[Rfam]
RNA sequence: CCGCACGAUGCCUCCCGGGCUUCUCCGAGAUCCCCAUGAAGCGAAAGCCCCAAUGCACGUGCCAAAUCAUUGCCGUUCGUGUUGCAGUUUAGCCCUAAUUGUUCUUCACGGCUGAUCUGUGUCAAAGUAACGGCCAAAUCC
Numbered sequence: 001c002c003g004c005a006c007g008a009u010g011c012c013u014c015c016c017g018g019g020c021u022u023c024u025c026c027g028a029g030a031u032c033c034c035c036a037u038g039a040a041g042c043g044a045a046a047g048c049c050c051c052a053a054u055g056c057a058c059g060u061g062c063c064a065a066a067u068c069a070u071u072g073c074c075g076u077u078c079g080u081g082u083u084g085c086a087g088u089u090u091a092g093c094c095c096u097a098a099u100u101g102u103u104c105u106u107c108a109c110g111g112c113u114g115a116u117c118u119g120u121g122u123c124a125a126a127g128u129a130a131c132g133g134c135c136a137a138a139u140c141c
Base pairs, nucleotide, nucleotide: 003062004061005060006059007058010056011055017050018049019048020047021046022044023043025041072134073133074132075131076130077129080124081123083121084120085119086118087117092112093111094110
Shown here is a 141-nucleotide sequence from Abrus precatorius, a member of the family "small nucleolar RNA snoR134".
It is annotated as an H/ACA-box small nucleolar RNA.
The base pairs follow the family's consensus structure, which was predicted with RNAalifold.
Taxonomically the source falls in Abrus (Eukaryota, Pentapetalae, rosids, Fabaceae).